[Rfam]
A member of the RNA family "SAM riboswitch aptamer (S box leader)" from Desulforamulus reducens, 108 nucleotides long.
NCBI's taxonomy places the organism under Bacteria, Bacillota, Eubacteriales, Peptococcaceae, Desulforamulus reducens.
The family's consensus secondary structure is taken from published work.
The sequence is in the family's curated seed alignment.

RNA sequence: UACUUAUCAAGAGUGGUGGAGGGACUGGCCCUAUGAAGCCCGGCAACCGGCCAUUGGAUGGCGGCGGUGCCAACUCCUGCAGGACUUUUAGUUCUUGAGAGAUAAGGU
Numbered sequence: 001u002a003c004u005u006a007u008c009a010a011g012a013g014u015g016g017u018g019g020a021g022g023g024a025c026u027g028g029c030c031c032u033a034u035g036a037a038g039c040c041c042g043g044c045a046a047c048c049g050g051c052c053a054u055u056g057g058a059u060g061g062c063g064g065c066g067g068u069g070c071c072a073a074c075u076c077c078u079g080c081a082g083g084a085c086u087u088u089u090a091g092u093u094c095u096u097g098a099g100a101g102a103u104a105a106g107g108u
Stems, first nucleotide, its partner, number of pairs: 003106006013041001015040003021031003025079001027077002042071004047067002050062003075100001080097005